Rfam assigns this 137-nucleotide sequence from Corymbia citriodora to the family "Small nucleolar RNA U19". The match comes from Rfam's covariance-model search (67 bits). On this family, see Marker et al., Curr Biol 2002: "Experimental RNomics: identification of 140 candidates for small non-messenger RNAs in the plant Arabidopsis thaliana". Pairs were carried over by alignment from the consensus structure, which was predicted with WAR. Taxonomically the source falls in Corymbia citriodora (Eukaryota, Gunneridae, malvids, Myrtoideae).
RNA sequence: AAUUGGCUUAGUUAGGGGGCAAACAUGAACUCGGAGGACCAGAGUACCUCUGGUCUUCCAAUGGCUAAGGCCUUUUGAGGGGACUAUCUUUGCUGCUAAAAUCAGAUCGAUUGUCCUCCAAGCAGCCUCGGACAUUC
Number, nucleotide and partner (000 for none) at each position: 001a000002a000003u000004u021005g020006g000007c018008u017009u016010a000011g000012u000013u000014a000015g000016g009017g008018g007019g000020c005021a004022a000023a000024c000025a000026u000027g000028a000029a000030c000031u000032c000033g000034g058035a057036g056037g055038a054039c000040c052041a051042g050043a049044g048045u000046a000047c000048c044049u043050c042051u041052g040053g000054u038055c037056u036057u035058c034059c000060a000061a000062u000063g000064g000065c131066u130067a000068a128069g127070g126071c125072c000073u000074u122075u121076u120077g119078a000079g118080g117081g116082g115083a114084c113085u000086a111087u110088c000089u000090u000091u000092g000093c000094u000095g000096c000097u000098a000099a000100a000101a000102u000103c000104a000105g000106a000107u000108c000109g000110a087111u086112u000113g084114u083115c082116c081117u080118c079119c077120a076121a075122g074123c000124a000125g071126c070127c069128u068129c000130g066131g065132a000133c000134a000135u000136u000137c000